A member of the RNA family "Glycine riboswitch aptamer" from Aquabacterium olei, 140 nucleotides long. A search with the family's covariance model found it, with a score of 52 bits. The organism belongs to Aquabacterium, within Bacteria. Rfam's curators write: This family represents the bacterial glycine riboswitch.
[Rfam]
RNA sequence: GUGAUCCUCACUGGAGAGAGUCGGGCCGUCGUCACCCCCAUGACGCGCGCAGCCCGGCCACCGAAGGGGCAAGCCCGCACCGCACAGGCUCACUGGCGCGACGGGUCAAUCUCUCAGGUAAAGCGGACAGCGAGGGCAGC
Numbered sequence: 001g002u003g004a005u006c007c008u009c010a011c012u013g014g015a016g017a018g019a020g021u022c023g024g025g026c027c028g029u030c031g032u033c034a035c036c037c038c039c040a041u042g043a044c045g046c047g048c049g050c051a052g053c054c055c056g057g058c059c060a061c062c063g064a065a066g067g068g069g070c071a072a073g074c075c076c077g078c079a080c081c082g083c084a085c086a087g088g089c090u091c092a093c094u095g096g097c098g099c100g101a102c103g104g105g106u107c108a109a110u111c112u113c114u115c116a117g118g119u120a121a122a123g124c125g126g127a128c129a130g131c132g133a134g135g136g137c138a139g140c
Stems, first nucleotide, its partner, number of pairs: 006135004011130003020058007060119003063115002067113003073106005